[Rfam]
RNA sequence: GGAUUAAGAGAGAAAACAAGUAAAGAGGAGAAUUUUUUACAUUUUUAUUUUUGUUUUAUAAUUCUCUUCUUUAUUAAAAGAAACAUCAGUGAUUAAUUUAAUUUCAAUAAAGCAAUCCCCUGAAAUUCAAAAUUUCUUUUAAUUUUGUUUUCACUUUCUCCCCGCACUAAUGUGGGGAAAACUGGCUUUAUUUCUUCAAUUAUUUUUUUUGCUGAGGAAUUUUAAAAUUAUUUGAAUUUUUCUUCUUAUAAUUUAAGUUGUUUCUAUAUAGUACUUUCUUAACCCACUCGUCUUGAAACACGG
Numbered sequence: 001g002g003a004u005u006a007a008g009a010g011a012g013a014a015a016a017c018a019a020g021u022a023a024a025g026a027g028g029a030g031a032a033u034u035u036u037u038u039a040c041a042u043u044u045u046u047a048u049u050u051u052u053g054u055u056u057u058a059u060a061a062u063u064c065u066c067u068u069c070u071u072u073a074u075u076a077a078a079a080g081a082a083a084c085a086u087c088a089g090u091g092a093u094u095a096a097u098u099u100a101a102u103u104u105c106a107a108u109a110a111a112g113c114a115a116u117c118c119c120c121u122g123a124a125a126u127u128c129a130a131a132a133u134u135u136c137u138u139u140u141a142a143u144u145u146u147g148u149u150u151u152c153a154c155u156u157u158c159u160c161c162c163c164g165c166a167c168u169a170a171u172g173u174g175g176g177g178a179a180a181a182c183u184g185g186c187u188u189u190a191u192u193u194c195u196u197c198a199a200u201u202a203u204u205u206u207u208u209u210u211g212c213u214g215a216g217g218a219a220u221u222u223u224a225a226a227a228u229u230a231u232u233u234g235a236a237u238u239u240u241u242c243u244u245c246u247u248a249u250a251a252u253u254u255a256a257g258u259u260g261u262u263u264c265u266a267u268a269u270a271g272u273a274c275u276u277u278c279u280u281a282a283c284c285c286a287c288u289c290g291u292c293u294u295g296a297a298a299c300a301c302g303g
Stems, first nucleotide, its partner, number of pairs: 001285002004282009020074007079265007288303004
RNA: Eukaryotic large subunit ribosomal RNA, nucleotides 473 to 775
Organism: Plasmodium falciparum